[Rfam]
RNA sequence: CUGUGUUUUGCUUCAACAGUGUUUGGAUGAAAAG
Numbered sequence: 001c002u003g004u005g006u007u008u009u010g011c012u013u014c015a016a017c018a019g020u021g022u023u024u025g026g027a028u029g030a031a032a033a034g
Base pairs, nucleotide, nucleotide: 001034002033004032006031007030008029010028012027013026014025015024016023017021

The family of this 34-nucleotide sequence from Nyctereutes procyonoides is "Iron response element I". Taxonomically the source falls in Nyctereutes (Eukaryota, Bilateria, Euteleostomi, Canidae). A search with the family's covariance model found it, with a score of 35 bits. A reference for the family is Huang et al. (1999), "An atypical iron-responsive element (IRE) within crayfish ferritin mRNA and an iron regulatory protein 1 (IRP1)-like protein from crayfish hepatopancreas", Insect Biochem Mol Biol. The family has 62 seed sequences and 6,829 matches in Rfam 15.1.